[Rfam]
A member of the RNA family "U8 small nucleolar RNA", 133 nucleotides long. The literature on the family includes a 2010 paper in Nucleic Acids Res by Hokii et al., "A small nucleolar RNA functions in rRNA processing in Caenorhabditis elegans". Its family is annotated with nucleolus and RNA processing in the Gene Ontology. It is annotated as a C/D-box small nucleolar RNA.

RNA sequence: ACAUCAGUGAGGUACAUCCUUACCUGUUACCUUAGCAAUAAGGUUACAGAUCAUGAUGAUUGGAUUCUAUGAAUACGUGAUUAUAUACCGUAUUUGUUUAGGGACUGCAACCCCUUUACGAAUCCUGUCUGAC
Numbered sequence: 001a002c003a004u005c006a007g008u009g010a011g012g013u014a015c016a017u018c019c020u021u022a023c024c025u026g027u028u029a030c031c032u033u034a035g036c037a038a039u040a041a042g043g044u045u046a047c048a049g050a051u052c053a054u055g056a057u058g059a060u061u062g063g064a065u066u067c068u069a070u071g072a073a074u075a076c077g078u079g080a081u082u083a084u085a086u087a088c089c090g091u092a093u094u095u096g097u098u099u100a101g102g103g104a105c106u107g108c109a110a111c112c113c114c115u116u117u118a119c120g121a122a123u124c125c126u127g128u129c130u131g132a133c
Base pairs, nucleotide, nucleotide: 024049025048026047028046029045030043031042032041033040072094073093075091076090077089078083098118100116101115102114